[Rfam]
Bacterial large subunit ribosomal RNA: a 379-nucleotide part of an RNA from Acidiferrobacter sp. SPIII_3. A search with the family's covariance model found it, with a score of 2802 bits. The source organism's lineage runs through Bacteria, Pseudomonadati, Gammaproteobacteria, Acidiferrobacterales and Acidiferrobacter.
RNA sequence: GAUAAUGCGGGUGAAAAACCCGCACGCCGAAAGCCCAAGGUUUCCUGCGCAACGUUAAUCGGCGCAGGGUGAGUCGGCCCCUAAGGCGAGGUCGAAAGACGUAGUCGAUGGGAAACAGGUUAAUAUUCCUGUACCGGACGUUACUGCUAUGGGGGGACGGAGAAGGCUAGGCCGGCCGGGUGUUGGAUGUCCCGGUUUAAGCGUGUAGGUAGAUCCACUAGGCAAAUCCGGUGGGUUAUUACUGAGGCGUUAUGACGAGGUCCUUAAGUGGACCGAAGUGGUUGAUGCCAUGCUUCCAGGAAAAUCCUCUAUGCUUCAGGUAACGAACGACCGUACCCCAAACCGACACAGGUGGGCAGGGUGAGAAUCCCAAGGCGCU
Numbered sequence: 001g002a003u004a005a006u007g008c009g010g011g012u013g014a015a016a017a018a019c020c021c022g023c024a025c026g027c028c029g030a031a032a033g034c035c036c037a038a039g040g041u042u043u044c045c046u047g048c049g050c051a052a053c054g055u056u057a058a059u060c061g062g063c064g065c066a067g068g069g070u071g072a073g074u075c076g077g078c079c080c081c082u083a084a085g086g087c088g089a090g091g092u093c094g095a096a097a098g099a100c101g102u103a104g105u106c107g108a109u110g111g112g113a114a115a116c117a118g119g120u121u122a123a124u125a126u127u128c129c130u131g132u133a134c135c136g137g138a139c140g141u142u143a144c145u146g147c148u149a150u151g152g153g154g155g156g157a158c159g160g161a162g163a164a165g166g167c168u169a170g171g172c173c174g175g176c177c178g179g180g181u182g183u184u185g186g187a188u189g190u191c192c193c194g195g196u197u198u199a200a201g202c203g204u205g206u207a208g209g210u211a212g213a214u215c216c217a218c219u220a221g222g223c224a225a226a227u228c229c230g231g232u233g234g235g236u237u238a239u240u241a242c243u244g245a246g247g248c249g250u251u252a253u254g255a256c257g258a259g260g261u262c263c264u265u266a267a268g269u270g271g272a273c274c275g276a277a278g279u280g281g282u283u284g285a286u287g288c289c290a291u292g293c294u295u296c297c298a299g300g301a302a303a304a305u306c307c308u309c310u311a312u313g314c315u316u317c318a319g320g321u322a323a324c325g326a327a328c329g330a331c332c333g334u335a336c337c338c339c340a341a342a343c344c345g346a347c348a349c350a351g352g353u354g355g356g357c358a359g360g361g362u363g364a365g366a367a368u369c370c371c372a373a374g375g376c377g378c379u
Base pairs, nucleotide, nucleotide: 006024007023008022009021010020011019025377026376027375028374033357034356035355036354039337040336044068045067046066047065048064049063053061054060075333076332077331080111081110085106086105087104089102091100092099093098115132116131117130118129119128135329136328139325140324141323142322143321144320145319146314147313151309152308153307154306155305159296160295161294162293165289166288167287170283171282172281173280174279175196176195177194178193179192180191197255198254201250202249203248204247208243209242210241213236214235215234216233217232218231219230221229222228259274260273261272262271263270343352344351359371360370361369
Record summary: Gene Ontology terms of the family: structural constituent of ribosome and ribosome. Pairs were carried over by alignment from the consensus structure, which is taken from published work.